[Rfam]
RNA: U1A polyadenylation inhibition element (PIE)
RNA sequence: CCACACAGCAUUGUACCCAGAGUCUGUCCCCAGACAUUGCACCUGGCGCUGUUAGAUUGUGAUUAAAGUGAGUU
Numbered sequence: 001c002c003a004c005a006c007a008g009c010a011u012u013g014u015a016c017c018c019a020g021a022g023u024c025u026g027u028c029c030c031c032a033g034a035c036a037u038u039g040c041a042c043c044u045g046g047c048g049c050u051g052u053u054a055g056a057u058u059g060u061g062a063u064u065a066a067a068g069u070g071a072g073u074u
Base pairs, nucleotide, nucleotide: 005052006051007050008049009048017046018045019044020043022035023034024033025032026031